[Rfam]
The record is a 270-nucleotide sequence from Piscinibacter aquaticus, which matches "Group I catalytic intron" in Rfam. Gene Ontology term of the family: Group I intron splicing. A reference for the family is Cech (1990), "Self-splicing of group I introns", Annu Rev Biochem. A search with the family's covariance model found it, with a score of 70 bits. Lineage of the source: Bacteria > Pseudomonadota > Betaproteobacteria > Sphaerotilaceae > Piscinibacter. The family has 12 seed sequences and 5,602 matches in Rfam 15.1.
RNA sequence: CAGAGGACUCAUCAAGGUGGUGACCCUGGCGUGAGAGCGCCAGUGGAAAACCGGGUGAAUUCAGGGAAACCGUCCGCUUCCACAAGGAGCCCGGCAACCGUGAGCCAAGCCCACCGAAGGCAGGUCAGCGAAUCGGUAGGUGGGAAGGUGCAGAGACUAGGAUGCGAGGAGCCAGUCCGAUAAGCAUCCCGAGAGCGCCCGGCACCCAACCAGCGUCCUUAAGGCGUGUUGCGGGUGAUGAGAUAGUCCGAGGAGCAGCGAAAGCUGCAC
Numbered sequence: 001c002a003g004a005g006g007a008c009u010c011a012u013c014a015a016g017g018u019g020g021u022g023a024c025c026c027u028g029g030c031g032u033g034a035g036a037g038c039g040c041c042a043g044u045g046g047a048a049a050a051c052c053g054g055g056u057g058a059a060u061u062c063a064g065g066g067a068a069a070c071c072g073u074c075c076g077c078u079u080c081c082a083c084a085a086g087g088a089g090c091c092c093g094g095c096a097a098c099c100g101u102g103a104g105c106c107a108a109g110c111c112c113a114c115c116g117a118a119g120g121c122a123g124g125u126c127a128g129c130g131a132a133u134c135g136g137u138a139g140g141u142g143g144g145a146a147g148g149u150g151c152a153g154a155g156a157c158u159a160g161g162a163u164g165c166g167a168g169g170a171g172c173c174a175g176u177c178c179g180a181u182a183a184g185c186a187u188c189c190c191g192a193g194a195g196c197g198c199c200c201g202g203c204a205c206c207c208a209a210c211c212a213g214c215g216u217c218c219u220u221a222a223g224g225c226g227u228g229u230u231g232c233g234g235g236u237g238a239u240g241a242g243a244u245a246g247u248c249c250g251a252g253g254a255g256c257a258g259c260g261a262a263a264g265c266u267g268c269a270c
Stems, first nucleotide, its partner, number of pairs: 005026001009023005030039003051202004056197002061103003065099002070094003104149002110143002117137001120134001153249001155248005205235003255268005